This 162-nucleotide sequence from Tupaia belangeri belongs to the Rfam family "U1 spliceosomal RNA". The literature on the family includes a 1997 paper in Nucleic Acids Res by Zwieb, "The uRNA database". Rfam links the family to the GO terms U1 snRNP, pre-mRNA 5'-splice site binding and mRNA 5'-splice site recognition. Rfam classes the family as a spliceosomal small nuclear RNA. The family's consensus secondary structure is taken from published work. The match comes from Rfam's covariance-model search (96 bits). Lineage of the source: Eukaryota > Vertebrata > Mammalia > Boreoeutheria > Tupaia belangeri.

RNA sequence: AUAUUUAGUCUGGCAGGGGAAGUACCGUAAUCAUGAAGGGAGAUUCCCCAGGGCAGAGCUUAUCCAUUGUACUUGGAUGUGUUCCCCUGCGAUUUCCCCAAAUGUGGGAAAAUCAACUACAUAAUGUGUGGUAGUGGGGGACUGCAUUUGUGCUUUCCUCUU
Numbered sequence: 001a002u003a004u005u006u007a008g009u010c011u012g013g014c015a016g017g018g019g020a021a022g023u024a025c026c027g028u029a030a031u032c033a034u035g036a037a038g039g040g041a042g043a044u045u046c047c048c049c050a051g052g053g054c055a056g057a058g059c060u061u062a063u064c065c066a067u068u069g070u071a072c073u074u075g076g077a078u079g080u081g082u083u084c085c086c087c088u089g090c091g092a093u094u095u096c097c098c099c100a101a102a103u104g105u106g107g108g109a110a111a112a113u114c115a116a117c118u119a120c121a122u123a124a125u126g127u128g129u130g131g132u133a134g135u136g137g138g139g140g141a142c143u144g145c146a147u148u149u150g151u152g153c154u155u156u157c158c159u160c161u162u
Base pairs, nucleotide, nucleotide: 013120015118016117017049018048019047021045022044025042028039050088051087052086053085057083058082059081061079062078063077064076065075091114092113093111094110095109097107098106136161137160138159139158140157141156144153145152146151

Rfam's curators write: U1 is a small nuclear RNA (snRNA) component of the spliceosome (involved in pre-mRNA splicing). Its 5' end forms complementary base pairs with the 5' splice junction, thus defining the 5' donor site of an intron. There are significant differences in sequence and secondary structure between metazoan and yeast U1 snRNAs, the latter being much longer (568 nucleotides as compared to 164 nucleotides in human). Nevertheless, secondary structure predictions suggest that all U1 snRNAs share a 'common core' consisting of helices I, II, the proximal region of III, and IV. This family does not contain the larger yeast sequences. Clan: U1 clan.